[Rfam]
Background:
This 86-nucleotide RNA from Pantoea ananatis belongs to the Rfam family "RpsF leader". The literature on the family includes a 2015 paper in RNA by Babina et al., "An S6:S18 complex inhibits translation of E. coli rpsF". Taxonomically the source falls in Pantoea ananatis (Bacteria, Gammaproteobacteria, Enterobacterales, Pantoea). The match comes from Rfam's covariance-model search (92 bits).

RNA sequence: CCCACGACCUAUAACGUUCCUUGCUUCCGUGGGCCGCAGCUGACCCUGACAGGAGGCUGAAUAAUCCGUAAGGAGCAAUUUCGAUG
Numbered sequence: 001c002c003c004a005c006g007a008c009c010u011a012u013a014a015c016g017u018u019c020c021u022u023g024c025u026u027c028c029g030u031g032g033g034c035c036g037c038a039g040c041u042g043a044c045c046c047u048g049a050c051a052g053g054a055g056g057c058u059g060a061a062u063a064a065u066c067c068g069u070a071a072g073g074a075g076c077a078a079u080u081u082c083g084a085u086g
Base pairs, nucleotide, nucleotide: 016076017075018074019073020072021071022070023057024056025055026054027053028052031046032045033044
About the family: Conserved and widely distributed to many bacterial species RNA structure. It precedes operon containing rpsF, which encodes ribosomal protein S6. The pairing is the family consensus, mapped onto this sequence. The family's RNA type in Rfam is cis-regulatory leader.